[Rfam]
RNA sequence: GGUUGGACAAAUAAUUUAUUUGUUUUCAAGAGAUUAUGACUUUUGGGGUGGAAAGUA
Numbered sequence: 001g002g003u004u005g006g007a008c009a010a011a012u013a014a015u016u017u018a019u020u021u022g023u024u025u026u027c028a029a030g031a032g033a034u035u036a037u038g039a040c041u042u043u044u045g046g047g048g049u050g051g052a053a054a055g056u057a
Stems, first nucleotide, its partner, number of pairs: 003029003006024006039056006

A member of the RNA family "Na+ riboswitch aptamer (DUF1646)" from Clostridium arbusti, 57 nucleotides long. On this family, see White et al., Nat Chem Biol 2022: "Na(+) riboswitches regulate genes for diverse physiological processes in bacteria".